[Rfam]
RNA sequence: CUAGCACUUUUCACAGGUCCUUCCUUUGUCAGUGGGGUCAGGAUUUGGUAGCUGGUGCUGAGAUAAAACCCUUGAUUACAUCCUUGCCCUGAUACUGUACCAGUGGCAGCUGUUACUCAAGGGAACAGUG
Numbered sequence: 001c002u003a004g005c006a007c008u009u010u011u012c013a014c015a016g017g018u019c020c021u022u023c024c025u026u027u028g029u030c031a032g033u034g035g036g037g038u039c040a041g042g043a044u045u046u047g048g049u050a051g052c053u054g055g056u057g058c059u060g061a062g063a064u065a066a067a068a069c070c071c072u073u074g075a076u077u078a079c080a081u082c083c084u085u086g087c088c089c090u091g092a093u094a095c096u097g098u099a100c101c102a103g104u105g106g107c108a109g110c111u112g113u114u115a116c117u118c119a120a121g122g123g124a125a126c127a128g129u130g
Stems, first nucleotide, its partner, number of pairs: 003059006014047003018043004023037004070123002072120004077115002080113002084109005089103003
The record is a 130-nucleotide sequence, which matches "Small nucleolar RNA SNORA30/SNORA37 family" in Rfam. About the family: The members of this family belong to the H/ACA class of snoRNAs that guide the sites of modification of uridines to pseudouridines. This family includes human ACA30 (SNORA30), ACA37 (SNORA37) and the mouse homolog MBI-26. Both ACA37 and ACA30 are predicted to guide the pseudouridylation of residue U4643 of 28S rRNA. The sequence is in the family's curated seed alignment.